[Rfam]
RNA sequence: GUUUGCGGGGAGUUUGUUAAAAGAAACUGGCAUGGUGAAUCCCCCUGUGCGGAGGGGCAAUCAGCGAGUAGGUAUAUGGGAUAAUCGCAGAUUCAGGUGCUGGUACUGAAUUCACCGGGAGGCACCCGGCACCAUGCAAUGGCACAUAGCGCCACUCUCCAGCCCCUCUCCGGAGGGGCUGUUUAUAUUG
Numbered sequence: 001g002u003u004u005g006c007g008g009g010g011a012g013u014u015u016g017u018u019a020a021a022a023g024a025a026a027c028u029g030g031c032a033u034g035g036u037g038a039a040u041c042c043c044c045c046u047g048u049g050c051g052g053a054g055g056g057g058c059a060a061u062c063a064g065c066g067a068g069u070a071g072g073u074a075u076a077u078g079g080g081a082u083a084a085u086c087g088c089a090g091a092u093u094c095a096g097g098u099g100c101u102g103g104u105a106c107u108g109a110a111u112u113c114a115c116c117g118g119g120a121g122g123c124a125c126c127c128g129g130c131a132c133c134a135u136g137c138a139a140u141g142g143c144a145c146a147u148a149g150c151g152c153c154a155c156u157c158u159c160c161a162g163c164c165c166c167u168c169u170c171c172g173g174a175g176g177g178g179c180u181g182u183u184u185a186u187a188u189u190g
Base pairs, nucleotide, nucleotide: 015144016143030137031136032135033134034133035132036131037130042057043056044055045054046053078088080086090112091111092110094108095107096106115129116128117127118126119125150190151189160181161180162179163178164177165176166175167174

Gammaproteobacterial sRNA STnc100: a 190-nucleotide sequence from Shigella boydii. The family's RNA type in Rfam is small RNA. Taxonomically the source falls in Shigella boydii (Bacteria, Pseudomonadota, Gammaproteobacteria, Enterobacteriaceae). The base pairs follow the family's consensus structure, which was predicted with CMfinder. The match comes from Rfam's covariance-model search (127 bits).